[Rfam]
RNA sequence: CCGGAGAAUCUGUCAAGCUCAGGAGGGAUAGCGCCCCUCCACUAAUCAUCAUCCACCGGAAAAACUAAGUUUCCGGCGCUAUCUAUCCUGGGUUUCAUGGCUUCUUCUU
Numbered sequence: 001c002c003g004g005a006g007a008a009u010c011u012g013u014c015a016a017g018c019u020c021a022g023g024a025g026g027g028a029u030a031g032c033g034c035c036c037c038u039c040c041a042c043u044a045a046u047c048a049u050c051a052u053c054c055a056c057c058g059g060a061a062a063a064a065c066u067a068a069g070u071u072u073c074c075g076g077c078g079c080u081a082u083c084u085a086u087c088c089u090g091g092g093u094u095u096c097a098u099g100g101c102u103u104c105u106u107c108u109u
Stems, first nucleotide, its partner, number of pairs: 010100001016094009026084010